[Rfam]
RNA sequence: GCGGCUCGGCGGCUCCGCUCGCCGGAGUAGCGUGCAGCGGAGAGAUCCCGCGCGCUACUCCAACGAGCGUGGCUACCCGUGCUGC
Numbered sequence: 001g002c003g004g005c006u007c008g009g010c011g012g013c014u015c016c017g018c019u020c021g022c023c024g025g026a027g028u029a030g031c032g033u034g035c036a037g038c039g040g041a042g043a044g045a046u047c048c049c050g051c052g053c054g055c056u057a058c059u060c061c062a063a064c065g066a067g068c069g070u071g072g073c074u075a076c077c078c079g080u081g082c083u084g085c
Base pairs, nucleotide, nucleotide: 001085002084003083004082005081007079008078012073013072014071016069017068018067019066020065021064024061025060027058028057029056030055031054032053033052034051035050037048039046